[Rfam]
Rfam assigns this 202-nucleotide RNA from Dichanthelium oligosanthes to the family "MIR1435 microRNA precursor family".
RNA sequence: UCUGCUUUGUCCUAAGUCAAACGCGUCUAACUUUGAUCAAGUUCAUAUAAGAAUUUAUUAACAAAUAUAACAUCAAAUAAAUGCACUAUCAAGCUAUAUUUCAUGUUGGAGUCAAUGAAACUAAUUUGAUGUUGUAGAUGUUGGUGCUUUUUUCUAUAAACUUGGUGAAAGUUAGAUGAGUUUGGCUUAGGUCAAAGCUCGU
Numbered sequence: 001u002c003u004g005c006u007u008u009g010u011c012c013u014a015a016g017u018c019a020a021a022c023g024c025g026u027c028u029a030a031c032u033u034u035g036a037u038c039a040a041g042u043u044c045a046u047a048u049a050a051g052a053a054u055u056u057a058u059u060a061a062c063a064a065a066u067a068u069a070a071c072a073u074c075a076a077a078u079a080a081a082u083g084c085a086c087u088a089u090c091a092a093g094c095u096a097u098a099u100u101u102c103a104u105g106u107u108g109g110a111g112u113c114a115a116u117g118a119a120a121c122u123a124a125u126u127u128g129a130u131g132u133u134g135u136a137g138a139u140g141u142u143g144g145u146g147c148u149u150u151u152u153u154c155u156a157u158a159a160a161c162u163u164g165g166u167g168a169a170a171g172u173u174a175g176a177u178g179a180g181u182u183u184g185g186c187u188u189a190g191g192u193c194a195a196a197g198c199u200c201g202u
Base pairs, nucleotide, nucleotide: 005197006196007195008194009193012190013189014188015187016186017185018184019183020182021181022180024178025177026176027175032170033169034168036166046156047155049153050152051151052150053149056146057145058144060142061141062140063139066136067135068134069133073129074128075127076126077125078124